Shown here is a 36-nucleotide sequence, a member of the family "DUF805b RNA".
[Rfam]
RNA sequence: UAGGUGGAAACCGAAAAACCUUAAAUAGAGUAGGUA
Numbered sequence: 001u002a003g004g005u006g007g008a009a010a011c012c013g014a015a016a017a018a019c020c021u022u023a024a025a026u027a028g029a030g031u032a033g034g035u036a
Stems, first nucleotide, its partner, number of pairs: 002021004010035003
Background: The sequence is in the family's curated seed alignment. Pairs were carried over by alignment from the consensus structure, which is taken from published work.